[Rfam]
RNA sequence: GGUACCUUUAAUUCAGUCCCGUGAGGCUGACAAGGACAGCGGAAACAAUGACCAUUGCGUGGCAUCCAUAUAUAUCUAUAUAUACAGGUGUCUUGUGUUCAUUGUACAAAAAAGCUUCCUGUCAGAAAUGGCAGGAAGCUUUUUUUA
Numbered sequence: 001g002g003u004a005c006c007u008u009u010a011a012u013u014c015a016g017u018c019c020c021g022u023g024a025g026g027c028u029g030a031c032a033a034g035g036a037c038a039g040c041g042g043a044a045a046c047a048a049u050g051a052c053c054a055u056u057g058c059g060u061g062g063c064a065u066c067c068a069u070a071u072a073u074a075u076c077u078a079u080a081u082a083u084a085c086a087g088g089u090g091u092c093u094u095g096u097g098u099u100c101a102u103u104g105u106a107c108a109a110a111a112a113a114g115c116u117u118c119c120u121g122u123c124a125g126a127a128a129u130g131g132c133a134g135g136a137a138g139c140u141u142u143u144u145u146u147a
Stems, first nucleotide, its partner, number of pairs: 005035004013030006061092006069084006111142014
Record summary:
Rfam assigns this 147-nucleotide sequence from Bacillus aerolatus to the family "PyrR binding site". Rfam links the family to the GO terms pyrimidine nucleobase biosynthetic process and pyrimidine nucleobase transport. It is annotated as a cis-regulatory element.